Shown here is a 117-nucleotide RNA from Paraclostridium benzoelyticum, a member of the family "FMN riboswitch aptamer (RFN element)". From the family's description: The RFN element is a highly conserved domain that is found frequently in the 5'-untranslated regions of prokaryotic mRNAs that encode for flavin mononucleotide (FMN) biosynthesis and transport proteins. This element is a metabolite-dependent riboswitch that directly binds FMN in the absence of proteins.

RNA sequence: AAUAAUCUUCAGGGCAGGGUGAAAUUCCCUACCGGCGGUAAAGCCCGCGAGCCGUAAAUGGCAUGAUUCGGUGAAACUCCGAAGCCGACAGUAAAGUCUGGAUGAAAGAAGAUAAUG
Numbered sequence: 001a002a003u004a005a006u007c008u009u010c011a012g013g014g015c016a017g018g019g020u021g022a023a024a025u026u027c028c029c030u031a032c033c034g035g036c037g038g039u040a041a042a043g044c045c046c047g048c049g050a051g052c053c054g055u056a057a058a059u060g061g062c063a064u065g066a067u068u069c070g071g072u073g074a075a076a077c078u079c080c081g082a083a084g085c086c087g088a089c090a091g092u093a094a095a096g097u098c099u100g101g102a103u104g105a106a107a108g109a110a111g112a113u114a115a116u117g
Base pairs, nucleotide, nucleotide: 003115005113006112007111008110009109010108017029018028019027031097032096033087034086035048036047037046038045043085044084053061067083068082069081070080071079089100090099091098
Dot-bracket structure: ..(.((((((......(((.......))).[[((((((....[[))))....(.......).....(((((.......)))))]])).(((....]]))).......)))))).)..